The family of this 98-nucleotide RNA sequence from Coffea arabica is "small nucleolar RNA snoR117". It scores 54 bits against the family's covariance model. The base pairs follow the family's consensus structure, which was predicted with RNAalifold. The family has 6 seed sequences and 419 matches in Rfam 15.1. The literature on the family includes a 2009 paper in Nucleic Acids Res by Chen and Wu, "Mining small RNA sequencing data: a new approach to identify small nucleolar RNAs in Arabidopsis".
Nucleotides: 098
Base pairs, nucleotide, nucleotide: 001097002096003095004094
Number, partner (000 for none) and nucleotide at each position: 001097g002096a003095c004094c005000u006000g007000u008000g009000a010000u011000g012000u013000a014000u015000c016000g017000g018000u019000a020000a021000a022000a023000u024000u025000g026000u027000c028000c029000g030000u031000a032000c033000c034000a035000u036000c037000u038000g039000a040000u041000u042000g043000a044000g045000g046000a047000u048000c049000u050000c051000a052000c053000u054000u055000a056000g057000a058000u059000c060000c061000u062000u063000u064000c065000u066000c067000u068000g069000a070000u071000g072000a073000u074000u075000c076000u077000u078000a079000a080000a081000g082000c083000c084000u085000a086000u087000a088000u089000u090000c091000u092000g093000a094004g095003g096002u097001c098000u